Rfam assigns this 110-nucleotide RNA from Tessaracoccus sp. ZS01 to the family "TPP riboswitch aptamer (THI element)".
From the family's description: Vitamin B(1) in its active form thiamin pyrophosphate (TPP) is an essential coenzyme that is synthesised by coupling of pyrimidine and thiazole moieties in bacteria.
RNA sequence: UGCCAUCCACGCGGGUGCCCUCGGCAGAGGGCUGAGAUGGGGCUGAUGCGGCCCGGACCGUCCGAACCUGUCCGGGUCAUGCCGGCGAAGGAAGUGAACCAUGUCACACA
Numbered sequence: 001u002g003c004c005a006u007c008c009a010c011g012c013g014g015g016u017g018c019c020c021u022c023g024g025c026a027g028a029g030g031g032c033u034g035a036g037a038u039g040g041g042g043c044u045g046a047u048g049c050g051g052c053c054c055g056g057a058c059c060g061u062c063c064g065a066a067c068c069u070g071u072c073c074g075g076g077u078c079a080u081g082c083c084g085g086c087g088a089a090g091g092a093a094g095u096g097a098a099c100c101a102u103g104u105c106a107c108a109c110a
Stems, first nucleotide, its partner, number of pairs: 006098001008096003011061004016055001017032005039054003043050001067091003072085004
A search with the family's covariance model found it, with a score of 66 bits.